[Rfam]
Annotation: The record is a 125-nucleotide RNA sequence from Oryctes borbonicus, which matches "U4atac minor spliceosomal RNA" in Rfam. Lineage of the source: Eukaryota > Eumetazoa > Ecdysozoa > Altocrustacea > Oryctes. Its Rfam clan is "U4 clan". The match comes from Rfam's covariance-model search (73 bits).
RNA sequence: GUCUUCUUUGUCUAGGGGAGCGAUAUGUGUCAAUGAUCGUUUAGUGAGACCAUACUUGCUGACACCCGCAUUUUAAAAUCCGCGCACCCAAAAUCUAUUCUUAUUUGAGUGCAAUUUUUGGACGU
Numbered sequence: 001g002u003c004u005u006c007u008u009u010g011u012c013u014a015g016g017g018g019a020g021c022g023a024u025a026u027g028u029g030u031c032a033a034u035g036a037u038c039g040u041u042u043a044g045u046g047a048g049a050c051c052a053u054a055c056u057u058g059c060u061g062a063c064a065c066c067c068g069c070a071u072u073u074u075a076a077a078a079u080c081c082g083c084g085c086a087c088c089c090a091a092a093a094u095c096u097a098u099u100c101u102u103a104u105u106u107g108a109g110u111g112c113a114a115u116u117u118u119u120g121g122a123c124g125u
Stems, first nucleotide, its partner, number of pairs: 005019005020059004024054004029050003038044001084112004089107001092099002